[Rfam]
RNA sequence: GCCCUUCUAGCUCAGUCGGUAGAGCGCACGGCUCUUAACCGUGUGGUCGUGGGUUCGAGCCCCACGGGGGGUG
Numbered sequence: 001g002c003c004c005u006u007c008u009a010g011c012u013c014a015g016u017c018g019g020u021a022g023a024g025c026g027c028a029c030g031g032c033u034c035u036u037a038a039c040c041g042u043g044u045g046g047u048c049g050u051g052g053g054u055u056c057g058a059g060c061c062c063c064a065c066g067g068g069g070g071g072u073g
Stems, first nucleotide, its partner, number of pairs: 001072007010025004027043005049065005
This 73-nucleotide RNA from Trypanosoma brucei belongs to the Rfam family "tRNA". Transfer RNA (tRNA) molecules are approximately 80 nucleotides in length. Taxonomically the source falls in Trypanosoma brucei (Eukaryota, Discoba, Kinetoplastea, Trypanosoma). The family's consensus secondary structure is taken from published work.